RNA sequence: UGACAAAAUCUGUUAAGCUCAGGAGGGAUAGCGCCACUGGGUCUUUCUGCAUGUGUGUUCCCUUUUGUAUGUGUGUUGAUGUGUAAUCACUAUACGUUGCGCUAUCCAUCCUGAGUUUCAUGGAAUUUUCAU
Numbered sequence: 001u002g003a004c005a006a007a008a009u010c011u012g013u014u015a016a017g018c019u020c021a022g023g024a025g026g027g028a029u030a031g032c033g034c035c036a037c038u039g040g041g042u043c044u045u046u047c048u049g050c051a052u053g054u055g056u057g058u059u060c061c062c063u064u065u066u067g068u069a070u071g072u073g074u075g076u077u078g079a080u081g082u083g084u085a086a087u088c089a090c091u092a093u094a095c096g097u098u099g100c101g102c103u104a105u106c107c108a109u110c111c112u113g114a115g116u117u118u119c120a121u122g123g124a125a126u127u128u129u130c131a132u
Stems, first nucleotide, its partner, number of pairs: 010123001016117009026107009
Dot-bracket structure: .........(.....(((((((((.(((((((((................................................................))))))))).))))))))).....).........
This 132-nucleotide RNA from Daucus carota belongs to the Rfam family "MIR390 microRNA precursor family". Pairs were carried over by alignment from the consensus structure, which was predicted with WAR. The family has 16 seed sequences and 649 matches in Rfam 15.1.